[Rfam]
RNA sequence: CACGAACAGACGCCGAGUCCCGCAGCGGCCGACAGGCCCUCCGGGAGCCGGGGACCCAUCAGCGGGGCCGCCACGCGGCCCUUGGGGUGAAUCCGCCCGCGCGGCGGUAGGGCAUCUCCACGUCCGAACCCGACAGCUAACCCGGUAGGCGAGAUGGAGAGGAGAA
Numbered sequence: 001c002a003c004g005a006a007c008a009g010a011c012g013c014c015g016a017g018u019c020c021c022g023c024a025g026c027g028g029c030c031g032a033c034a035g036g037c038c039c040u041c042c043g044g045g046a047g048c049c050g051g052g053g054a055c056c057c058a059u060c061a062g063c064g065g066g067g068c069c070g071c072c073a074c075g076c077g078g079c080c081c082u083u084g085g086g087g088u089g090a091a092u093c094c095g096c097c098c099g100c101g102c103g104g105c106g107g108u109a110g111g112g113c114a115u116c117u118c119c120a121c122g123u124c125c126g127a128a129c130c131c132g133a134c135a136g137c138u139a140a141c142c143c144g145g146u147a148g149g150c151g152a153g154a155u156g157g158a159g160a161g162g163a164g165a166a
Stems, first nucleotide, its partner, number of pairs: 011151004018046005047146006057084002085131003093107004110125004
The family of this 166-nucleotide RNA from Spongiactinospora gelatinilytica is "c-di-AMP riboswitch aptamer (ydaO/yuaA leader)". Lineage of the source: Bacteria > Bacillati > Actinomycetes > Streptosporangiaceae > Spongiactinospora. It scores 78 bits against the family's covariance model.